The record is a 104-nucleotide RNA sequence from Marinobacter daqiaonensis, which matches "Guanidine-I riboswitch aptamer" in Rfam.
From the family's description: This family represents a conserved RNA structure found upstream of the ykkC and yxkD genes in Bacillus subtilis and related genes in other bacteria. The function of this family is unclear although it has been suggested that it may function to switch on efflux pumps and detoxification systems in response to harmful environmental molecules.
It scores 90 bits against the family's covariance model.
The organism belongs to Marinobacter, within Bacteria.
RNA sequence: CCAAUGGGUGACUAGGGUUCCGGUCCGGGCAAAACGCCCGGAUGACUGGUCCGAGAGUUACCGACCUCUGAGAGGUUACACGGCGGGACAAAAGCCCGGGAGAU
Number, nucleotide and partner (000 for none) at each position: 001c000002c000003a000004a000005u000006g000007g062008g061009u060010g059011a058012c057013u000014a000015g052016g051017g000018u000019u000020c049021c048022g046023g043024u042025c041026c040027g039028g038029g037030c036031a000032a000033a000034a000035c000036g030037c029038c028039c027040g026041g025042a024043u023044g000045a000046c022047u000048g021049g020050u000051c016052c015053g000054a000055g000056a000057g012058u011059u010060a009061c008062c007063g077064a076065c075066c074067u073068c072069u000070g000071a000072g068073a067074g066075g065076u064077u063078a000079c099080a000081c102082g000083g000084c000085g097086g096087g095088a000089c000090a000091a000092a000093a000094g000095c087096c086097c085098g000099g079100g000101a000102g081103a000104u000